A member of the RNA family "Purine riboswitch aptamer" from Lactonifactor longoviformis, 96 nucleotides long.

RNA sequence: GAAAACGGAUAAAUGUAUACUUAUAUAAGUUCGUAAUUGGACGGACGUUUCUACCAACUACCGUAAUAGUUGACUAUAAGUUCCCGUGUCAGAGCG
Numbered sequence: 001g002a003a004a005a006c007g008g009a010u011a012a013a014u015g016u017a018u019a020c021u022u023a024u025a026u027a028a029g030u031u032c033g034u035a036a037u038u039g040g041a042c043g044g045a046c047g048u049u050u051c052u053a054c055c056a057a058c059u060a061c062c063g064u065a066a067u068a069g070u071u072g073a074c075u076a077u078a079a080g081u082u083c084c085c086g087u088g089u090c091a092g093a094g095c096g
Base pairs, nucleotide, nucleotide: 019081020080021079022078023077024076025075029046030045031044032043033042034041055072056071057070058069059068060067

The literature on the family includes a 2013 paper in Nature by Reining et al., "Three-state mechanism couples ligand and temperature sensing in riboswitches". The family's consensus secondary structure is taken from published work.